[Rfam]
MIR535 microRNA precursor family: a 94-nucleotide sequence from Hibiscus syriacus.
Pairs were carried over by alignment from the consensus structure, which was predicted with RNAalifold.
Lineage of the source: Eukaryota > Magnoliopsida > rosids > malvids > Hibiscus.
Its family is annotated with RISC complex and miRNA-mediated post-transcriptional gene silencing in the Gene Ontology.
Rfam 15.1 lists 544 matches to the family in 108 species.
For this family Rfam cites "Conservation and divergence of microRNAs and their functions in Euphorbiaceous plants" (Zeng et al., Nucleic Acids Res, 2010).
RNA sequence: CACAACAUUUGACAAUGAGAGAGAGCACGCCCGUUUCCAUUCAUGUGAGGCCGUGGAUGUGUACAAGCGUGCUCUCUGUCAUUGUCAUAUAUAU
Numbered sequence: 001c002a003c004a005a006c007a008u009u010u011g012a013c014a015a016u017g018a019g020a021g022a023g024a025g026c027a028c029g030c031c032c033g034u035u036u037c038c039a040u041u042c043a044u045g046u047g048a049g050g051c052c053g054u055g056g057a058u059g060u061g062u063a064c065a066a067g068c069g070u071g072c073u074c075u076c077u078g079u080c081a082u083u084g085u086c087a088u089a090u091a092u093a094u
Base pairs, nucleotide, nucleotide: 010087011086012085013084014083016081017080020077021076023074025072026071027070028069029068030067033064034063